[Rfam]
RNA sequence: CGACUCCAUCCACCGACCACACUCACGCACGGCAGGAGCGGGGGACCCAGGUAAGCCGCCGGCCAUGUGCCGGCUCGGGGUGAAGCCAUGCCUUCAGGGGCACGGCCGGGCAGCUCCAGCCCGAACCCGACAGCUCACCUCGCAGGCGCAGGAGAGGAAACCG
Numbered sequence: 001c002g003a004c005u006c007c008a009u010c011c012a013c014c015g016a017c018c019a020c021a022c023u024c025a026c027g028c029a030c031g032g033c034a035g036g037a038g039c040g041g042g043g044g045a046c047c048c049a050g051g052u053a054a055g056c057c058g059c060c061g062g063c064c065a066u067g068u069g070c071c072g073g074c075u076c077g078g079g080g081u082g083a084a085g086c087c088a089u090g091c092c093u094u095c096a097g098g099g100g101c102a103c104g105g106c107c108g109g110g111c112a113g114c115u116c117c118a119g120c121c122c123g124a125a126c127c128c129g130a131c132a133g134c135u136c137a138c139c140u141c142g143c144a145g146g147c148g149c150a151g152g153a154g155a156g157g158a159a160a161c162c163g
Stems, first nucleotide, its partner, number of pairs: 001145001005037003038143006048077001078128003086105002089102003108122004